[Rfam]
RNA sequence: UAAUAACAUAAAGAGAAGGUUAAGACCUCGGCAACCUGGAAGACUAUCCAAGGUGCUUGAAGAUGUGGCAGUAAUGCAACCAAGUAGUCGUAC
Numbered sequence: 001u002a003a004u005a006a007c008a009u010a011a012a013g014a015g016a017a018g019g020u021u022a023a024g025a026c027c028u029c030g031g032c033a034a035c036c037u038g039g040a041a042g043a044c045u046a047u048c049c050a051a052g053g054u055g056c057u058u059g060a061a062g063a064u065g066u067g068g069c070a071g072u073a074a075u076g077c078a079a080c081c082a083a084g085u086a087g088u089c090g091u092a093c
Stems, first nucleotide, its partner, number of pairs: 006066004015029001017028004030057003035053003038049003042089005068077003
RNA: SAM-I/IV (S-adenosyl methionine) riboswitch aptamer
Organism: Psychroflexus torquis